About this RNA:
The record is a 132-nucleotide sequence from Branchiostoma belcheri, which matches "Small nucleolar RNA SNORA68" in Rfam. By type it is an H/ACA-box small nucleolar RNA. U68 is a member of the H/ACA class of small nucleolar RNAs (snoRNAs) which act as guides in the the modification of uridines to pseudouridines. Pairs were carried over by alignment from the consensus structure, which was predicted with PFOLD. A reference for the family is Ganot et al. (1997), "The family of box ACA small nucleolar RNAs is defined by an evolutionarily conserved secondary structure and ubiquitous sequence elements essential for RNA accumulation", Genes Dev.

RNA sequence: AUUGCACUAAUAACUCGUUGAGUCAUACACUUAAUUGGAUGGCUCAAGUCACAAUGUGCAGAUAGAAACAAGGCUUGUCGCCUUCCCUGACUAGAAUUGUGUCCGUGGAAGUGAAUUGAAGCAGUAACAAUU
Numbered sequence: 001a002u003u004g005c006a007c008u009a010a011u012a013a014c015u016c017g018u019u020g021a022g023u024c025a026u027a028c029a030c031u032u033a034a035u036u037g038g039a040u041g042g043c044u045c046a047a048g049u050c051a052c053a054a055u056g057u058g059c060a061g062a063u064a065g066a067a068a069c070a071a072g073g074c075u076u077g078u079c080g081c082c083u084u085c086c087c088u089g090a091c092u093a094g095a096a097u098u099g100u101g102u103c104c105g106u107g108g109a110a111g112u113g114a115a116u117u118g119a120a121g122c123a124g125u126a127a128c129a130a131u132u
Base pairs, nucleotide, nucleotide: 002061003060004059005058006057007056020045021044022043023042024041025040026039028037029036070125073122074121075120076119082111083110084109085108086107087105089103090102091101
A search with the family's covariance model found it, with a score of 50 bits.